[Rfam]
RNA sequence: UAAAAUCUUCAGGGCAGGGUGAAAUUCCCGACCGGCGGUUAGAGUCCGCGACUCAACAUAAUGUUGAUUGAUCUGGUGAAAUUCCAGUACCGACAGUAAAGUCUGGAUGGAAGAAGAGCAAG
Numbered sequence: 001u002a003a004a005a006u007c008u009u010c011a012g013g014g015c016a017g018g019g020u021g022a023a024a025u026u027c028c029c030g031a032c033c034g035g036c037g038g039u040u041a042g043a044g045u046c047c048g049c050g051a052c053u054c055a056a057c058a059u060a061a062u063g064u065u066g067a068u069u070g071a072u073c074u075g076g077u078g079a080a081a082u083u084c085c086a087g088u089a090c091c092g093a094c095a096g097u098a099a100a101g102u103c104u105g106g107a108u109g110g111a112a113g114a115a116g117a118g119c120a121a122g
Stems, first nucleotide, its partner, number of pairs: 006117005017029003031102002033092002035049004044090002053067002073087004094105003
Dot-bracket structure: .....(((((......(((.......))).[[((((((.....[[))))...((...........)).....((((.......)))).]])).(((....]]))).......))))).....

About this RNA: Rfam assigns this 122-nucleotide RNA from Alkaliphilus metalliredigens to the family "FMN riboswitch aptamer (RFN element)". The base pairs follow the family's consensus structure, which is taken from published work. Gene Ontology term of the family: FMN binding.